c-di-GMP-I riboswitch aptamer: a 76-nucleotide RNA from Faecalibacterium prausnitzii. The base pairs follow the family's consensus structure, which is taken from published work.
RNA sequence: UAGAAUAUUUAGCAAAGCAGUUGAAAAGCUGUGACGCAAAGCUAAAGGGCCUGUAAAAUGGUAGCCAGUUGCAUUU
Numbered sequence: 001u002a003g004a005a006u007a008u009u010u011a012g013c014a015a016a017g018c019a020g021u022u023g024a025a026a027a028g029c030u031g032u033g034a035c036g037c038a039a040a041g042c043u044a045a046a047g048g049g050c051c052u053g054u055a056a057a058a059u060g061g062u063a064g065c066c067a068g069u070u071g072c073a074u075u076u
Base pairs, nucleotide, nucleotide: 012037013036017032018031019030020029021028022027040070041069042068043067047066048065049062050061051060